[Rfam]
Notes: This 86-nucleotide sequence from Rotaria sordida belongs to the Rfam family "Small nucleolar RNA Z159/U59". The match comes from Rfam's covariance-model search (39 bits). Clan: SNORD59 clan.
RNA sequence: GACAACAAUGAAGAAAAAAUUUGUUAGUCUCGUUCGUAUGAAUUUGCUUUGAUUUAAAACCAAAUCGAAAAAUCUACUGAGUUGUC
Numbered sequence: 001g002a003c004a005a006c007a008a009u010g011a012a013g014a015a016a017a018a019a020u021u022u023g024u025u026a027g028u029c030u031c032g033u034u035c036g037u038a039u040g041a042a043u044u045u046g047c048u049u050u051g052a053u054u055u056a057a058a059a060c061c062a063a064a065u066c067g068a069a070a071a072a073u074c075u076a077c078u079g080a081g082u083u084g085u086c
Stems, first nucleotide, its partner, number of pairs: 003084004